The family of this 93-nucleotide RNA from Malus domestica is "MIR162_1 microRNA precursor family". Its Rfam clan is "MIR167 microRNA precursor clan". Gene Ontology terms of the family: RISC complex and miRNA-mediated post-transcriptional gene silencing. The base pairs follow the family's consensus structure, which was predicted with RNAalifold. Taxonomically the source falls in Malus (Eukaryota, Streptophytina, Embryophyta, Rosales).

[Rfam]
RNA sequence: GCACUGGAGGCAGCGGUUCAUCGAUCUGUUUAUGAGAUUUGUUGUGAAAAAACACAGAACAUGAAUCGGUCGAUAAACCUCUGCAUCCAGCGC
Numbered sequence: 001g002c003a004c005u006g007g008a009g010g011c012a013g014c015g016g017u018u019c020a021u022c023g024a025u026c027u028g029u030u031u032a033u034g035a036g037a038u039u040u041g042u043u044g045u046g047a048a049a050a051a052a053c054a055c056a057g058a059a060c061a062u063g064a065a066u067c068g069g070u071c072g073a074u075a076a077a078c079c080u081c082u083g084c085a086u087c088c089a090g091c092g093c
Stems, first nucleotide, its partner, number of pairs: 006088003011083003015079004020074007029065003